[Rfam]
RNA sequence: GAAAUUUCAAUCGUUAGAGUAACACACAGUUACACGACCUCAUCAAUCGUGUCACUGGUCUUUCUCUGACGAAUUGAAGUUCU
Number, nucleotide and partner (000 for none) at each position: 001g000002a000003a081004a080005u079006u078007u077008c076009a075010a074011u000012c071013g070014u069015u068016a067017g066018a065019g064020u000021a062022a061023c000024a000025c000026a000027c057028a056029g055030u054031u000032a052033c051034a050035c049036g000037a000038c000039c000040u000041c000042a000043u000044c000045a000046a000047u000048c000049g035050u034051g033052u032053c000054a030055c029056u028057g027058g000059u000060c000061u022062u021063u000064c019065u018066c017067u016068g015069a014070c013071g012072a000073a000074u010075u009076g008077a007078a006079g005080u004081u003082c000083u000
This 83-nucleotide RNA from Caenorhabditis elegans belongs to the Rfam family "mir-359 microRNA precursor family". A reference for the family is Ohler et al. (2004), "Patterns of flanking sequence conservation and a characteristic upstream motif for microRNA gene identification", RNA. The source organism's lineage runs through Eukaryota, Opisthokonta, Eumetazoa, Rhabditoidea and Caenorhabditis. Rfam's curators put it in the seed alignment. Rfam links the family to the GO terms miRNA-mediated post-transcriptional gene silencing and RISC complex. Rfam 15.1 lists 5 matches to the family in 5 species.